Shown here is a 388-nucleotide RNA from Niallia endozanthoxylica, a member of the family "Bacterial RNase P class B". A search with the family's covariance model found it, with a score of 342 bits. Clan: RNaseP clan. Rfam describes the family as follows. Ribonuclease P (RNase P) is a ubiquitous endoribonuclease, found in archaea, bacteria and eukarya as well as chloroplasts and mitochondria. Its best characterised activity is the generation of mature 5'-ends of tRNAs by cleaving the 5'-leader elements of precursor-tRNAs. Cellular RNase Ps are ribonucleoproteins. RNA from bacterial RNase Ps retains its catalytic activity in the absence of the protein subunit, i.e. it is a ribozyme. Rfam links the family to the GO terms tRNA processing, ribonuclease P activity and dimeric ribonuclease P complex.
RNA sequence: GCGUUCGGGUAAUCGCUGUACGGUUUAAUCGUGCAGAGGAAAGUCCAUGCUCGCACAGACUGAGAUGUCUGUAGUGUUCGUGCCUGGCGAAUUCAUAAGCCAGGGCAGCUUGCUUGCAGGCUGACGGCAGGGAAAAUACCUAAGUCUAACUAGAUAUGGUAUGAAUACCUUGAAGGUGCCACAGUGACGUAGCCUUUUCAGAAAUGAAAAGGGUGGAACGAGGUAAACCCCGCGAGCGAGAAACCCAAAUUAUGGUAGGGGCACUUUCUCAGAGGAAAUGAACGAAGAGAAGGACGGAUGAUGUAUCAUCUGUAGAUAGAUGAUUACCACCUGAGUACAAGACUUAGGGUCGCUUGCAGUACAAAGGAACAAAACAUGGCUUAUAGAA
Numbered sequence: 001g002c003g004u005u006c007g008g009g010u011a012a013u014c015g016c017u018g019u020a021c022g023g024u025u026u027a028a029u030c031g032u033g034c035a036g037a038g039g040a041a042a043g044u045c046c047a048u049g050c051u052c053g054c055a056c057a058g059a060c061u062g063a064g065a066u067g068u069c070u071g072u073a074g075u076g077u078u079c080g081u082g083c084c085u086g087g088c089g090a091a092u093u094c095a096u097a098a099g100c101c102a103g104g105g106c107a108g109c110u111u112g113c114u115u116g117c118a119g120g121c122u123g124a125c126g127g128c129a130g131g132g133a134a135a136a137u138a139c140c141u142a143a144g145u146c147u148a149a150c151u152a153g154a155u156a157u158g159g160u161a162u163g164a165a166u167a168c169c170u171u172g173a174a175g176g177u178g179c180c181a182c183a184g185u186g187a188c189g190u191a192g193c194c195u196u197u198u199c200a201g202a203a204a205u206g207a208a209a210a211g212g213g214u215g216g217a218a219c220g221a222g223g224u225a226a227a228c229c230c231c232g233c234g235a236g237c238g239a240g241a242a243a244c245c246c247a248a249a250u251u252a253u254g255g256u257a258g259g260g261g262c263a264c265u266u267u268c269u270c271a272g273a274g275g276a277a278a279u280g281a282a283c284g285a286a287g288a289g290a291a292g293g294a295c296g297g298a299u300g301a302u303g304u305a306u307c308a309u310c311u312g313u314a315g316a317u318a319g320a321u322g323a324u325u326a327c328c329a330c331c332u333g334a335g336u337a338c339a340a341g342a343c344u345u346a347g348g349g350u351c352g353c354u355u356g357c358a359g360u361a362c363a364a365a366g367g368a369a370c371a372a373a374a375c376a377u378g379g380c381u382u383a384u385a386g387a388a
Stems, first nucleotide, its partner, number of pairs: 004388003007384001008328007016036006041382003045379005050240005055072006078235005083104006105125001106123006126230002129170003137161004144155003176228002178224003193212008244260003264293007294313008330367003335362004